[Rfam]
RNA sequence: CGGGGGUGCAUUGUAGUUGCAUUGCAUGUGUCAGCCUGGGAGUGCAAUGCCCCUGCGGUGCAGCCCCG
Numbered sequence: 001c002g003g004g005g006g007u008g009c010a011u012u013g014u015a016g017u018u019g020c021a022u023u024g025c026a027u028g029u030g031u032c033a034g035c036c037u038g039g040g041a042g043u044g045c046a047a048u049g050c051c052c053c054u055g056c057g058g059u060g061c062a063g064c065c066c067c068g
Stems, first nucleotide, its partner, number of pairs: 001068004006064001007062010019050001021048007

The family of this 68-nucleotide RNA sequence from Nothoprocta perdicaria is "mir-33 microRNA precursor family". It scores 68 bits against the family's covariance model. The family's consensus secondary structure was predicted with PFOLD. The organism belongs to Nothoprocta, within Eukaryota. The family has 73 seed sequences and 1,467 matches in Rfam 15.1.